[Rfam]
The record is a 129-nucleotide RNA from Microtus ochrogaster, which matches "Small nucleolar RNA SNORA44" in Rfam. About the family: ACA44 is a member of the H/ACA class of snoRNA that guide the sites of modification of uridines to pseudouridines. The family's consensus secondary structure was predicted with PFOLD. On this family, see Huttenhofer et al., EMBO J 2001: "RNomics: an experimental approach that identifies 201 candidates for novel, small, non-messenger RNAs in mouse". The organism belongs to Microtus, within Eukaryota.
Nucleotides: 129
Stems, first nucleotide, its partner, number of pairs: 011038001017033001019030003066122002069119003081109002084102003
Number, partner (000 for none) and nucleotide at each position: 001000c002000a003000g004000c005000a006000u007000u008000u009000u010000u011038c012000c013000a014000a015000g016000c017033g018000a019030a020029u021028a022000g023000c024000u025000g026000g027000c028021u029020g030019u031000a032000g033017c034000u035000a036000u037000a038011g039000a040000a041000u042000c043000u044000c045000c046000a047000a048000c049000u050000a051000c052000a053000u054000g055000c056000c057000u058000g059000a060000a061000u062000a063000a064000c065000u066122g067121g068000a069119g070118a071117a072000a073000a074000u075000u076000u077000g078000a079000g080000a081109g082108c083000c084102c085101a086100g087000a088000u089000c090000a091000a092000a093000a094000c095000a096000g097000u098000g099000a100086u101085u102084g103000c104000a105000a106000c107000u108082g109081c110000c111000a112000c113000u114000u115000g116000u117071u118070u119069u120000a121067c122066c123000u124000a125000u126000a127000u128000a129000g